[Rfam]
RNA sequence: AAGGCGUAUGUCGAAAAGCCUUUAACAGAGUAGACU
Numbered sequence: 001a002a003g004g005c006g007u008a009u010g011u012c013g014a015a016a017a018g019c020c021u022u023u024a025a026c027a028g029a030g031u032a033g034a035c036u
Base pairs, nucleotide, nucleotide: 002021003020004019005018010035011034012033
RNA: DUF805b RNA